[Rfam]
About this RNA: A member of the RNA family "Glycine riboswitch aptamer" from Cellulomonas composti, 90 nucleotides long. Rfam 15.1 lists 9,425 matches to the family in 5,228 species. NCBI's taxonomy places the organism under Bacteria, Actinomycetota, Actinomycetes, Cellulomonadaceae, Cellulomonas.

RNA sequence: CGAACCGCGACGGGAGAGUCCCGCACCCGCGGGCGCCGAAGGAGCAACCCUCCCCGGGAAUCUCUCAGGCCCCUGUACCGCCGCGGCGAG
Dot-bracket structure: .....((((.(((......((((......)))).(((((..(((...((......))....))))).))).......))).)))).....